[Rfam]
RNA sequence: UUAUUUGCAGAUGUAGCAUCAUCAAGAUUCACAUGCAAAUGUAGAAGGUUGUGUAUGUGGGACUUUCUCUUUUGAAGUGAGAAUCUUGAUGAUGCUGCAUCGGCAAUAAA
Numbered sequence: 001u002u003a004u005u006u007g008c009a010g011a012u013g014u015a016g017c018a019u020c021a022u023c024a025a026g027a028u029u030c031a032c033a034u035g036c037a038a039a040u041g042u043a044g045a046a047g048g049u050u051g052u053g054u055a056u057g058u059g060g061g062a063c064u065u066u067c068u069c070u071u072u073u074g075a076a077g078u079g080a081g082a083a084u085c086u087u088g089a090u091g092a093u094g095c096u097g098c099a100u101c102g103g104c105a106a107u108a109a110a
Stems, first nucleotide, its partner, number of pairs: 010101021032079002
The family of this 110-nucleotide sequence from Arachis duranensis is "mir-172 microRNA precursor family".
The source organism's lineage runs through Eukaryota, Viridiplantae, Gunneridae, rosids and Arachis.
Pairs were carried over by alignment from the consensus structure, which was predicted with PFOLD.
The literature on the family includes a 2004 paper in Mol Cell by Jones-Rhoades and Bartel, "Computational Identification of Plant MicroRNAs and Their Targets, Including a Stress-Induced miRNA".
It scores 92 bits against the family's covariance model.
Rfam describes the family as follows. mir-172 has been experimentally verified in Arabidopsis thaliana. This family is thought to target mRNAs coding for APETALA2-like transcription factors.
Rfam 15.1 lists 2,076 matches to the family in 219 species.